[Rfam]
SAH (S-adenosyl-L-homocysteine) riboswitch aptamer: a 120-nucleotide sequence from Paraburkholderia dinghuensis.
Pairs were carried over by alignment from the consensus structure, which is taken from published work.
The match comes from Rfam's covariance-model search (54 bits).
RNA sequence: GUCUCCGAGGAGCGUUGCGACGGGCAUCGCACAAUGCGAACACAGCCCGCCAGGCUCGGAGCCGCUCAAUACGGUUGAUCCACACGGACUCAACCGCAUCGAAAACGGCGCUCACGUCUU
Numbered sequence: 001g002u003c004u005c006c007g008a009g010g011a012g013c014g015u016u017g018c019g020a021c022g023g024g025c026a027u028c029g030c031a032c033a034a035u036g037c038g039a040a041c042a043c044a045g046c047c048c049g050c051c052a053g054g055c056u057c058g059g060a061g062c063c064g065c066u067c068a069a070u071a072c073g074g075u076u077g078a079u080c081c082a083c084a085c086g087g088a089c090u091c092a093a094c095c096g097c098a099u100c101g102a103a104a105a106c107g108g109c110g111c112u113c114a115c116g117u118c119u120u
Stems, first nucleotide, its partner, number of pairs: 003061006021049005